[Rfam]
RNA sequence: UAGACAUGGGGAGUGCAGAGGGGAUUCCCCUCUGUCGCAUUCAGGAGGGUGCUCAGACGACUUUGUCGUCGUCGAAGGGAAC
Numbered sequence: 001u002a003g004a005c006a007u008g009g010g011g012a013g014u015g016c017a018g019a020g021g022g023g024a025u026u027c028c029c030c031u032c033u034g035u036c037g038c039a040u041u042c043a044g045g046a047g048g049g050u051g052c053u054c055a056g057a058c059g060a061c062u063u064u065g066u067c068g069u070c071g072u073c074g075a076a077g078g079g080a081a082c
Base pairs, nucleotide, nucleotide: 015035016034017033018032019031020030021029022028056070057069058068059067060066